Description
The family of this 454-nucleotide sequence from Granulicella sibirica is "Bacterial RNase P class A". NCBI's taxonomy places the organism under Bacteria, Pseudomonadati, Terriglobia, Terriglobales, Granulicella. Rfam describes the family as follows. Ribonuclease P (RNase P) is a ubiquitous endoribonuclease, found in archaea, bacteria and eukarya as well as chloroplasts and mitochondria. A search with the family's covariance model found it, with a score of 261 bits. The family's RNA type in Rfam is ribozyme.
RNA sequence: GCAGGCGGCCGGACGAUCGCUGCCCUCCGCACCGCAAGGCGUCGGAGGGGGGAGGAAAGUCCGAACUCCGCAGGGCAGUGUGCCGGAUAACGUCCGGGACGGAUGCUUCAAAGCAUCUGGACGGCCAGUGCAACAGAAAAUAGACCGCCAGCGGUCGCGCAAGCGGCCGAAGGUAAGGGUGAAACGGUGCGGUAAGAGCGCACCGGGCUCUGCGUAAGCAGAGUCGCAUGGUAAACCCCACACGGAGCAAGACCAAAUAGGCAGGGAAUCGCAGCGCUCCUCUCCAGGCGGCGAUCACGCAUCGGCCCGAUGCGACCAGGCGGAGAGACCCGGAGCGGCGCAAGCCAAAACGGGAGCCGGAACCUGCGGGUAGGUUGCUGGAGCGCCGCAGUAAUGCGUCGCCUAGAGGAAUGAUCGUCUAAAACAAAAUUCGGCUUACGGGCCGCCUGCAACG
Numbered sequence: 001g002c003a004g005g006c007g008g009c010c011g012g013a014c015g016a017u018c019g020c021u022g023c024c025c026u027c028c029g030c031a032c033c034g035c036a037a038g039g040c041g042u043c044g045g046a047g048g049g050g051g052g053a054g055g056a057a058a059g060u061c062c063g064a065a066c067u068c069c070g071c072a073g074g075g076c077a078g079u080g081u082g083c084c085g086g087a088u089a090a091c092g093u094c095c096g097g098g099a100c101g102g103a104u105g106c107u108u109c110a111a112a113g114c115a116u117c118u119g120g121a122c123g124g125c126c127a128g129u130g131c132a133a134c135a136g137a138a139a140a141u142a143g144a145c146c147g148c149c150a151g152c153g154g155u156c157g158c159g160c161a162a163g164c165g166g167c168c169g170a171a172g173g174u175a176a177g178g179g180u181g182a183a184a185c186g187g188u189g190c191g192g193u194a195a196g197a198g199c200g201c202a203c204c205g206g207g208c209u210c211u212g213c214g215u216a217a218g219c220a221g222a223g224u225c226g227c228a229u230g231g232u233a234a235a236c237c238c239c240a241c242a243c244g245g246a247g248c249a250a251g252a253c254c255a256a257a258u259a260g261g262c263a264g265g266g267a268a269u270c271g272c273a274g275c276g277c278u279c280c281u282c283u284c285c286a287g288g289c290g291g292c293g294a295u296c297a298c299g300c301a302u303c304g305g306c307c308c309g310a311u312g313c314g315a316c317c318a319g320g321c322g323g324a325g326a327g328a329c330c331c332g333g334a335g336c337g338g339c340g341c342a343a344g345c346c347a348a349a350a351c352g353g354g355a356g357c358c359g360g361a362a363c364c365u366g367c368g369g370g371u372a373g374g375u376u377g378c379u380g381g382a383g384c385g386c387c388g389c390a391g392u393a394a395u396g397c398g399u400c401g402c403c404u405a406g407a408g409g410a411a412u413g414a415u416c417g418u419c420u421a422a423a424a425c426a427a428a429a430u431u432c433g434g435c436u437u438a439c440g441g442g443c444c445g446c447c448u449g450c451a452a453c454g
Stems, first nucleotide, its partner, number of pairs: 001450010011439001012419007020052002023049006057437003061434005066247004078243005083097005098122001100119008123238002128236002130232002145178002147174003152169007186204006205227001206225008251376004261367005300356001383402003387398004